Small nucleolar RNA SNORD14: a 124-nucleotide sequence from Adiantum capillus-veneris. The family's consensus secondary structure was predicted with PFOLD. Its family is annotated with nucleolus and RNA processing in the Gene Ontology. For this family Rfam cites "An essential domain in Saccharomyces cerevisiae U14 snoRNA is absent in vertebrates, but conserved in other yeasts" (Samarsky et al., Nucleic Acids Res, 1996). About the family: U14 small nucleolar RNA (U14 snoRNA) is required for early cleavages of eukaryotic precursor rRNAs. In yeasts, this molecule possess a stem-loop region (known as the Y-domain) which is essential for function. A similar structure, but with a different consensus sequence, is found in plants, but is absent in vertebrates. The family has 18 seed sequences and 4,559 matches in Rfam 15.1. By type it is a C/D-box small nucleolar RNA.
RNA sequence: GCCAAGGGAUGAUGACGAAGAAGGCUUGUUUCUCAAAAACAUUCGCAGUGGCCGCCUAAGAGCUCUCGCCCUUCGCGGGGCUUGAGAGCUACUGCUGUUGUUUCUUCCUUGGAUAUCUGAUGGC
Numbered sequence: 001g002c003c004a005a006g007g008g009a010u011g012a013u014g015a016c017g018a019a020g021a022a023g024g025c026u027u028g029u030u031u032c033u034c035a036a037a038a039a040c041a042u043u044c045g046c047a048g049u050g051g052c053c054g055c056c057u058a059a060g061a062g063c064u065c066u067c068g069c070c071c072u073u074c075g076c077g078g079g080g081c082u083u084g085a086g087a088g089c090u091a092c093u094g095c096u097g098u099u100g101u102u103u104c105u106u107c108c109u110u111g112g113a114u115a116u117c118u119g120a121u122g123g124c
Stems, first nucleotide, its partner, number of pairs: 001124004062089006
Dot-bracket structure: ((((.........................................................((((((................))))))...............................))))
Background
Taxonomically the source falls in Adiantum (Eukaryota, Streptophyta, Euphyllophyta, Polypodiopsida).